[Rfam]
Shown here is a 204-nucleotide sequence from Dujonia railenensis, a member of the family "Small nucleolar RNA snR43". Its family is annotated with RNA processing and nucleolus in the Gene Ontology.
RNA sequence: CACUCCUGAUUCUGCCCCAGCUUCCUUUUGCUCGAUGGAUUCAAUGGGUUCUGUUUAUGGAGAAGAUCAAGCCGGAUAAUGAAACACGGACAACUUUUGAUACAUCCGUCUGUGAAUUAUUAGCCGGAUCGUGUGGUUGAUUAGCCCUUGCGUGGCAAACUUUUCUAAUGGGGAUUGUUUGCCUGGCUAAUUGUCACUACAUUA
Numbered sequence: 001c002a003c004u005c006c007u008g009a010u011u012c013u014g015c016c017c018c019a020g021c022u023u024c025c026u027u028u029u030g031c032u033c034g035a036u037g038g039a040u041u042c043a044a045u046g047g048g049u050u051c052u053g054u055u056u057a058u059g060g061a062g063a064a065g066a067u068c069a070a071g072c073c074g075g076a077u078a079a080u081g082a083a084a085c086a087c088g089g090a091c092a093a094c095u096u097u098u099g100a101u102a103c104a105u106c107c108g109u110c111u112g113u114g115a116a117u118u119a120u121u122a123g124c125c126g127g128a129u130c131g132u133g134u135g136g137u138u139g140a141u142u143a144g145c146c147c148u149u150g151c152g153u154g155g156c157a158a159a160c161u162u163u164u165c166u167a168a169u170g171g172g173g174a175u176u177g178u179u180u181g182c183c184u185g186g187c188u189a190a191u192u193g194u195c196a197c198u199a200c201a202u203u204a
Stems, first nucleotide, its partner, number of pairs: 003062004016048004020042001023039003072127004077122005083117001085114007133197004139192005154183005163174004
It scores 142 bits against the family's covariance model.
The source organism's lineage runs through Eukaryota, Ascomycota, Serinales, Debaryomycetaceae and Dujonia.